The record is a 134-nucleotide RNA from Novosphingobium aromaticivorans, which matches "SAM-I/IV (S-adenosyl methionine) riboswitch aptamer" in Rfam. The source organism's lineage runs through Bacteria, Alphaproteobacteria, Sphingomonadales, Novosphingobium and Novosphingobium aromaticivorans. Gene Ontology terms of the family: S-adenosylmethionine metabolic process and regulation of gene expression. It is one of the family's seed sequences.
RNA sequence: CCCCAACAUCGAGAGUUGGGGUGACGCUCCAACGCCAACCUGCCGUUCCGGGCAAGGUGGUACCCGAUCCGCAAGGCGGCCCCGGCCGAAUUGCGAAAGGGGAUGUGGCCGAUCCGGCAACCAAACGGACACGG
Numbered sequence: 001c002c003c004c005a006a007c008a009u010c011g012a013g014a015g016u017u018g019g020g021g022u023g024a025c026g027c028u029c030c031a032a033c034g035c036c037a038a039c040c041u042g043c044c045g046u047u048c049c050g051g052g053c054a055a056g057g058u059g060g061u062a063c064c065c066g067a068u069c070c071g072c073a074a075g076g077c078g079g080c081c082c083c084g085g086c087c088g089a090a091u092u093g094c095g096a097a098a099g100g101g102g103a104u105g106u107g108g109c110c111g112a113u114c115c116g117g118c119a120a121c122c123a124a125a126c127g128g129a130c131a132c133g134g
Stems, first nucleotide, its partner, number of pairs: 006106005015033006034061003039057003042053003047129004108118004